int-alpA RNA: a 67-nucleotide RNA sequence. The sequence is in the family's curated seed alignment. The family's RNA type in Rfam is small RNA.
RNA sequence: CAACAAACUAGGUUAGCUACCGAAAAGCAGAACUGUGACUGCCUGUUUGUUGUUUUUGUUAUUCACA
Numbered sequence: 001c002a003a004c005a006a007a008c009u010a011g012g013u014u015a016g017c018u019a020c021c022g023a024a025a026a027g028c029a030g031a032a033c034u035g036u037g038a039c040u041g042c043c044u045g046u047u048u049g050u051u052g053u054u055u056u057u058g059u060u061a062u063u064c065a066c067a
Stems, first nucleotide, its partner, number of pairs: 001052008011021003027042004034067005
The family's consensus secondary structure is taken from published work. From the family's description: Acidobacteria (1 example), Planctomycetes (1 example), Proteobacteria.